[Rfam]
RNA sequence: UUUUACAACUCCUCAGGUAAUGUUGGCAGGGUCCCUUAAAGGGUAACCUUUAAGCGCAAAUCGGGUGAAUUGCUGGAACUUCCUAAAGAGCUGUCCUCCCUACAACGUAAUCCGAAAGGGUAGACGUGACAGGCUGAAAAGCAGGGCAGAUUGGAUAAUCAGCAGCCGAGCUCCUGUUCCGAAAGGAUGGAGAAGGUUCAACGACUAGGACGUACCACCUAAACCCGGCCCCACCGGGUACGGUGAUGAGGUCCGUAGGGGUAAGAGGUUCCCCGAAGCACCCGACAGCCAUCAAACAAGAUGGUUGAAGAUAUAGUCUGGCGGUUAUCGAAAGAUAACC
Numbered sequence: 001u002u003u004u005a006c007a008a009c010u011c012c013u014c015a016g017g018u019a020a021u022g023u024u025g026g027c028a029g030g031g032u033c034c035c036u037u038a039a040a041g042g043g044u045a046a047c048c049u050u051u052a053a054g055c056g057c058a059a060a061u062c063g064g065g066u067g068a069a070u071u072g073c074u075g076g077a078a079c080u081u082c083c084u085a086a087a088g089a090g091c092u093g094u095c096c097u098c099c100c101u102a103c104a105a106c107g108u109a110a111u112c113c114g115a116a117a118g119g120g121u122a123g124a125c126g127u128g129a130c131a132g133g134c135u136g137a138a139a140a141g142c143a144g145g146g147c148a149g150a151u152u153g154g155a156u157a158a159u160c161a162g163c164a165g166c167c168g169a170g171c172u173c174c175u176g177u178u179c180c181g182a183a184a185g186g187a188u189g190g191a192g193a194a195g196g197u198u199c200a201a202c203g204a205c206u207a208g209g210a211c212g213u214a215c216c217a218c219c220u221a222a223a224c225c226c227g228g229c230c231c232c233a234c235c236g237g238g239u240a241c242g243g244u245g246a247u248g249a250g251g252u253c254c255g256u257a258g259g260g261g262u263a264a265g266a267g268g269u270u271c272c273c274c275g276a277a278g279c280a281c282c283c284g285a286c287a288g289c290c291a292u293c294a295a296a297c298a299a300g301a302u303g304g305u306u307g308a309a310g311a312u313a314u315a316g317u318c319u320g321g322c323g324g325u326u327a328u329c330g331a332a333a334g335a336u337a338a339c340c
Stems, first nucleotide, its partner, number of pairs: 001031004040049003061285004066280002071164006081155003085151001165197002172190002178185001201319001203318005288305006325338005
RNA: Group I catalytic intron